[Rfam]
RNA: Purine riboswitch aptamer
Organism: Anaerovirgula multivorans
RNA sequence: AAUAGUUAAUAGUACAACACUCAUAUAAUAUCGAUAAUAUGGAUCGAUAGUAUCUACCCUUGGGACCGUAAAUCCCUGGACUAUGGGUGAAGUUAUUAUAUUU
Numbered sequence: 001a002a003u004a005g006u007u008a009a010u011a012g013u014a015c016a017a018c019a020c021u022c023a024u025a026u027a028a029u030a031u032c033g034a035u036a037a038u039a040u041g042g043a044u045c046g047a048u049a050g051u052a053u054c055u056a057c058c059c060u061u062g063g064g065a066c067c068g069u070a071a072a073u074c075c076c077u078g079g080a081c082u083a084u085g086g087g088u089g090a091a092g093u094u095a096u097u098a099u100a101u102u103u
Base pairs, nucleotide, nucleotide: 018089019088020087021086022085023084024083025082029049030048031047032046033045034044035043059079060078062076063075064074065073